[Rfam]
RNA sequence: GCUGGCAGUGAUGACAAACUUGCCCUCACUGAGAUCCAUCCAGGGGUUGUUGCUGAGAACCAUCCUCUGUGCUCAACUUGGGCUGAGCCUGC
Number, nucleotide and partner (000 for none) at each position: 001g092002c091003u000004g089005g088006c087007a000008g000009u000010g000011a000012u000013g000014a000015c000016a000017a000018a000019c000020u000021u000022g000023c000024c000025c000026u000027c000028a000029c000030u000031g000032a000033g000034a000035u000036c000037c000038a000039u000040c000041c000042a000043g000044g000045g000046g000047u000048u000049g000050u000051u000052g000053c000054u000055g000056a000057g000058a000059a000060c000061c000062a000063u000064c000065c000066u000067c000068u000069g000070u000071g000072c000073u000074c000075a000076a000077c000078u000079u000080g000081g000082g000083c000084u000085g000086a000087g006088c005089c004090u000091g002092c001
Small nucleolar RNA SNORD103/SNORD85: a 92-nucleotide RNA from Vidua chalybeata. The source organism's lineage runs through Eukaryota, Teleostomi, Dinosauria, Neoaves and Vidua.